Shown here is an 89-nucleotide sequence from Priestia veravalensis, a member of the family "Glycine riboswitch aptamer". The match comes from Rfam's covariance-model search (71 bits). Its family is annotated with glycine biosynthetic process in the Gene Ontology.

RNA sequence: AUGAUGACAAGGGGAGAGACUGCUUUAAAGUGGCGCCGAAGGAGCAAACAACAUGUGAAUCUCUCAGGCAAAAAGACUCUUGUUGGACG
Numbered sequence: 001a002u003g004a005u006g007a008c009a010a011g012g013g014g015a016g017a018g019a020c021u022g023c024u025u026u027a028a029a030g031u032g033g034c035g036c037c038g039a040a041g042g043a044g045c046a047a048a049c050a051a052c053a054u055g056u057g058a059a060u061c062u063c064u065c066a067g068g069c070a071a072a073a074a075g076a077c078u079c080u081u082g083u084u085g086g087a088c089g
Stems, first nucleotide, its partner, number of pairs: 006084008020033004035069003038065002042063003048056002